[Rfam]
RNA sequence: AAAGUAGCAAUACCCCAUAUCUUGCUAAAACAAGAUAUGGGGUAUUGCUACUUU
Number, nucleotide and partner (000 for none) at each position: 001a054002a053003a052004g051005u050006a049007g048008c047009a046010a045011u044012a043013c042014c041015c000016c000017a000018u000019a036020u035021c034022u033023u032024g031025c000026u000027a000028a000029a000030a000031c024032a023033a022034g021035a020036u019037a000038u000039g000040g000041g014042g013043u012044a011045u010046u009047g008048c007049u006050a005051c004052u003053u002054u001
RNA: Plastid-psbA-3 3UTR RNA
Organism: Ravenala madagascariensis